Rfam assigns this 47-nucleotide sequence from Nicotiana tabacum to the family "Plastid-rpl16 group II-D1 intron".
RNA sequence: AAGAACUUCGAGCCAAUAAAGACUGAGAAGAUUGACUCAACGAUCAA
Numbered sequence: 001a002a003g004a005a006c007u008u009c010g011a012g013c014c015a016a017u018a019a020a021g022a023c024u025g026a027g028a029a030g031a032u033u034g035a036c037u038c039a040a041c042g043a044u045c046a047a
Stems, first nucleotide, its partner, number of pairs: 008040001010038003014034004
A search with the family's covariance model found it, with a score of 58 bits.
Lineage of the source: Eukaryota > Streptophyta > Pentapetalae > Nicotianoideae > Nicotiana.
Plastid-rpl16 is a non-coding RNA (ncRNA) recognised in plastids. It was recognised in and intronic region of a ribosome rpl16 gene.